RNA: Pseudomonas sRNA P11
RNA sequence: CACCGCCAGACUUGGCACAAGCGCUGCAUGGCCUCUCACAAGCAAUGUAUAGAGCGCCCGCCUUCAACGACGAAGGCAGCGCUGCUCCCGAGAGAACGGGAUUCGGACAAAGGCGUCCUGUCAGGUAACUGGCGGGAUGCC
Number, nucleotide and partner (000 for none) at each position: 001c000002a000003c000004c000005g000006c000007c000008a000009g000010a000011c000012u110013u109014g108015g027016c026017a025018c000019a000020a000021g000022c000023g000024c000025u017026g016027c015028a000029u000030g000031g000032c000033c000034u000035c000036u000037c000038a000039c000040a000041a000042g000043c000044a000045a000046u000047g000048u000049a000050u000051a000052g000053a000054g082055c081056g080057c079058c000059c000060g000061c076062c075063u000064u073065c072066a000067a000068c000069g000070a000071c000072g065073a064074a000075g062076g061077c000078a000079g057080c056081g055082c054083u000084g000085c000086u101087c100088c099089c098090g097091a000092g000093a000094g000095a000096a000097c090098g089099g088100g087101a086102u000103u000104c000105g000106g000107a000108c014109a013110a012111a000112g141113g140114c139115g138116u137117c136118c135119u000120g133121u132122c131123a130124g129125g000126u000127a000128a000129c124130u123131g122132g121133c120134g000135g118136g117137a116138u115139g114140c113141c112